[Rfam]
This 125-nucleotide RNA sequence from Brassica rapa belongs to the Rfam family "MIR9563 microRNA precursor family". The organism belongs to Brassica, within Eukaryota. Its family is annotated with RISC complex and miRNA-mediated post-transcriptional gene silencing in the Gene Ontology. The family's consensus secondary structure was predicted with RNAalifold.
RNA sequence: AGAAUAUAAGAACCCGUCUCUUAAUUUUUAACUAAAAAAGAUAAAAAAUGGUUCUUAAAUAUUUUAUUUAAAAGCCGGUUCUUAGUUUUUUUAGUUAAAAAUUAAGAGAAGAGUUCUUAUAUUCC
Numbered sequence: 001a002g003a004a005u006a007u008a009a010g011a012a013c014c015c016g017u018c019u020c021u022u023a024a025u026u027u028u029u030a031a032c033u034a035a036a037a038a039a040g041a042u043a044a045a046a047a048a049u050g051g052u053u054c055u056u057a058a059a060u061a062u063u064u065u066a067u068u069u070a071a072a073a074g075c076c077g078g079u080u081c082u083u084a085g086u087u088u089u090u091u092u093a094g095u096u097a098a099a100a101a102u103u104a105a106g107a108g109a110a111g112a113g114u115u116c117u118u119a120u121a122u123u124c125c
Stems, first nucleotide, its partner, number of pairs: 002124012015111001017109023042084003046080002